A member of the RNA family "mir-1302 microRNA precursor family" from Callorhinus ursinus, 52 nucleotides long. NCBI's taxonomy places the organism under Eukaryota, Bilateria, Craniata, Otariidae, Callorhinus. The family's consensus secondary structure was predicted with WAR.
RNA sequence: GCUCUAGUAUAAGUGUGUCCCGUACAACAUUUGGGACAUACUUAUACUAAAA
Numbered sequence: 001g002c003u004c005u006a007g008u009a010u011a012a013g014u015g016u017g018u019c020c021c022g023u024a025c026a027a028c029a030u031u032u033g034g035g036a037c038a039u040a041c042u043u044a045u046a047c048u049a050a051a052a
Stems, first nucleotide, its partner, number of pairs: 006048007014040003018036004022031001